[Rfam]
RNA sequence: GGCCCAUGAUGACUGGUAAAAGGUCUGACACCCCAGGCCCGUGUGCCCUGCCGUCCCCAGCUGCCCCUCCCCUGUCAGGCUGCAGCCAUGCCAUGCUGGGCACAGGGCAGCUGACACCUUGUGGUGCCCCCACCCCGUGUCCCUGACGAGCCCAGGUGCCACUGUGGUUGGUGCCCAACAGCUGCAUGACCAAGGGACCUGGAGGCAGAGCACACCGGGGUCUGGGGGCUGAUCUGACGUUGCCAAGCUGAGGCC
Numbered sequence: 001g002g003c004c005c006a007u008g009a010u011g012a013c014u015g016g017u018a019a020a021a022g023g024u025c026u027g028a029c030a031c032c033c034c035a036g037g038c039c040c041g042u043g044u045g046c047c048c049u050g051c052c053g054u055c056c057c058c059a060g061c062u063g064c065c066c067c068u069c070c071c072c073u074g075u076c077a078g079g080c081u082g083c084a085g086c087c088a089u090g091c092c093a094u095g096c097u098g099g100g101c102a103c104a105g106g107g108c109a110g111c112u113g114a115c116a117c118c119u120u121g122u123g124g125u126g127c128c129c130c131c132a133c134c135c136c137g138u139g140u141c142c143c144u145g146a147c148g149a150g151c152c153c154a155g156g157u158g159c160c161a162c163u164g165u166g167g168u169u170g171g172u173g174c175c176c177a178a179c180a181g182c183u184g185c186a187u188g189a190c191c192a193a194g195g196g197a198c199c200u201g202g203a204g205g206c207a208g209a210g211c212a213c214a215c216c217g218g219g220g221u222c223u224g225g226g227g228g229c230u231g232a233u234c235u236g237a238c239g240u241u242g243c244c245a246a247g248c249u250g251a252g253g254c255c
Base pairs, nucleotide, nucleotide: 001255002254003253004252034236035235036234037233039231044212045211046210048208049207050206051205054197055196056195057194058113059112060111061110062109063108064107071100072099073098074097076095077094079092080090121176123175124174125173126172127171128170137162138161139160141158142156143155144154145153
Rfam assigns this 255-nucleotide RNA sequence from Echinops telfairi to the family "Small Cajal body specific RNA 6". Pairs were carried over by alignment from the consensus structure, which is taken from published work. It is annotated as a small Cajal body RNA. About the family: U88 is small Cajal body specific RNA (scaRNA). scaRNAs are a novel class of small nuclear RNAs which localise to the Cajal bodies. Lineage of the source: Eukaryota > Amniota > Theria > Tenrecidae > Echinops. Its family is annotated with nucleolus and RNA processing in the Gene Ontology. A reference for the family is Darzacq et al. (2002), "Cajal body-specific small nuclear RNAs: a novel class of 2'-O-methylation and pseudouridylation guide RNAs", EMBO J.